The family of this 135-nucleotide sequence is "Betaproteobacteria-1 RNA". Pairs were carried over by alignment from the consensus structure, which is taken from published work. The family's RNA type in Rfam is small RNA.

RNA sequence: ACAAUUCCUGUACUGGCGGCUCUAACGACAUCGUAGCGGUACAGGAGCAGUAAAGCGUUACUAGAAGGGUAAGAGGCUGAAACAGCGCAAUACAGGUGGCGAAGUUAGUGCCUGUGCCUCGCAAGACUGACGGGU
Numbered sequence: 001a002c003a004a005u006u007c008c009u010g011u012a013c014u015g016g017c018g019g020c021u022c023u024a025a026c027g028a029c030a031u032c033g034u035a036g037c038g039g040u041a042c043a044g045g046a047g048c049a050g051u052a053a054a055g056c057g058u059u060a061c062u063a064g065a066a067g068g069g070u071a072a073g074a075g076g077c078u079g080a081a082a083c084a085g086c087g088c089a090a091u092a093c094a095g096g097u098g099g100c101g102a103a104g105u106u107a108g109u110g111c112c113u114g115u116g117c118c119u120c121g122c123a124a125g126a127c128u129g130a131c132g133g134g135u
Stems, first nucleotide, its partner, number of pairs: 001051002005047006040063002055088005074119004092115006104131006